[Rfam]
The family of this 29-nucleotide RNA is "L31-Firmicutes ribosomal protein leader". Rfam's curators put it in the seed alignment. On this family, see Eckert and Weinberg, BMC Microbiol 2020: "Discovery of 20 novel ribosomal leader candidates in bacteria and archaea".
RNA sequence: CUAUGACCCAAAGGUUAUGGCGGAAGGAG
Numbered sequence: 001c002u003a004u005g006a007c008c009c010a011a012a013g014g015u016u017a018u019g020g021c022g023g024a025a026g027g028a029g
Stems, first nucleotide, its partner, number of pairs: 001020008